[Rfam]
RNA sequence: AGUGGGGGUGAGAAACUGGCUUGGCUUAUACGCAAAGCAACAGUCAGUCUUUUUCUCUCUCCUAUC
Numbered sequence: 001a002g003u004g005g006g007g008g009u010g011a012g013a014a015a016c017u018g019g020c021u022u023g024g025c026u027u028a029u030a031c032g033c034a035a036a037g038c039a040a041c042a043g044u045c046a047g048u049c050u051u052u053u054u055c056u057c058u059c060u061c062c063u064a065u066c
Base pairs, nucleotide, nucleotide: 002065003064004063005062006061007060008059010057011056012055013054015052018049019048020047021046024044025043026042

Record summary
Rfam assigns this 66-nucleotide RNA sequence from Ooceraea biroi to the family "mir-14 microRNA precursor family". A search with the family's covariance model found it, with a score of 56 bits. On this family, see Li et al., BMC Genomics 2009: "Direct sequencing and expression analysis of a large number of miRNAs in Aedes aegypti and a multi-species survey of novel mosquito miRNAs".